[Rfam]
RNA sequence: CAUAGUUCUCAGGGCGGGGUGCAAGUCCCCACCGGCGGUAAGGCUCACAAGGCCGAGCCCGCGAGCGCUUCCUUCGGGAAGGUCAGCAGAUCCGGUGUGAUUCCGGAGCCGACGGUCAUAGUCCGGAUGAUAGAGAACGGGA
Number, nucleotide and partner (000 for none) at each position: 001c000002a000003u140004a000005g138006u137007u136008c135009u134010c133011a000012g000013g000014g000015c000016g000017g029018g028019g027020u000021g000022c000023a000024a000025g000026u000027c019028c018029c017030c000031a122032c121033c111034g110035g062036c061037g060038g059039u000040a000041a000042g000043g000044c000045u000046c000047a000048c000049a000050a000051g000052g000053c000054c000055g000056a000057g109058c108059c038060c037061g036062c035063g000064a000065g087066c086067g000068c000069u000070u000071c000072c000073u000074u000075c000076g000077g000078g000079a000080a000081g000082g000083u000084c000085a000086g066087c065088a000089g000090a000091u107092c106093c105094g104095g103096u000097g000098u000099g000100a000101u000102u000103c095104c094105g093106g092107a091108g058109c057110c034111g033112a000113c125114g124115g123116u000117c000118a000119u000120a000121g032122u031123c115124c114125g113126g000127a000128u000129g000130a000131u000132a000133g010134a009135g008136a007137a006138c005139g000140g003141g000142a000
Record summary
A member of the RNA family "FMN riboswitch aptamer (RFN element)" from Devosia sp. MC521, 142 nucleotides long. A search with the family's covariance model found it, with a score of 117 bits. The family's consensus secondary structure is taken from published work.